[Rfam]
RNA sequence: CUGAACAUAGUGAGAGAGCAUGCAAAAAGCAUCACCGAAGGGGCAAGUGUUGCGACACGAAACUCUCAGGUAAACGGAUUACUAUGGGACA
Numbered sequence: 001c002u003g004a005a006c007a008u009a010g011u012g013a014g015a016g017a018g019c020a021u022g023c024a025a026a027a028a029g030c031a032u033c034a035c036c037g038a039a040g041g042g043g044c045a046a047g048u049g050u051u052g053c054g055a056c057a058c059g060a061a062a063c064u065c066u067c068a069g070g071u072a073a074a075c076g077g078a079u080u081a082c083u084a085u086g087g088g089a090c091a
Base pairs, nucleotide, nucleotide: 006086007085008084009083010082011081012080013079020032021031022030023029034071035070036069037067038066041065042064043063047058048057
The record is a 91-nucleotide RNA from Brochothrix campestris, which matches "Glycine riboswitch aptamer" in Rfam. Pairs were carried over by alignment from the consensus structure. The source organism's lineage runs through Bacteria, Bacillota, Bacilli, Listeriaceae and Brochothrix campestris. Rfam describes the family as follows. This family represents the bacterial glycine riboswitch. Glycine riboswitches usually consist of two metabolite-binding aptamers domains with similar structures in tandem. The aptamers cooperatively bind glycine to regulate the expression of downstream genes. In Bacillus subtilis, this riboswitch is found upstream of the gcvT operon which controls glycine degradation.